The family of this 97-nucleotide sequence is "NiCo (Nickel/Cobalt) riboswitch aptamer". Rfam links the family to the GO terms metal ion homeostasis and cobalt ion binding. Clan: NiCo_riboswitches.

RNA sequence: ACAGUUCAAGGUGAGCAGGCGAUGAACCCUCCGGGGUUCGUGGGGCCGGGCCGUAAAAUCGGCAGCAGAUUGUUCAACACACAUCUGUGGGACUUUA
Numbered sequence: 001a002c003a004g005u006u007c008a009a010g011g012u013g014a015g016c017a018g019g020c021g022a023u024g025a026a027c028c029c030u031c032c033g034g035g036g037u038u039c040g041u042g043g044g045g046c047c048g049g050g051c052c053g054u055a056a057a058a059u060c061g062g063c064a065g066c067a068g069a070u071u072g073u074u075c076a077a078c079a080c081a082c083a084u085c086u087g088u089g090g091g092a093c094u095u096u097a
Base pairs, nucleotide, nucleotide: 010096011095013093016091018047019046020045022041023040024039025038026037027036050063051062052061053060065088066087067086068085069084070083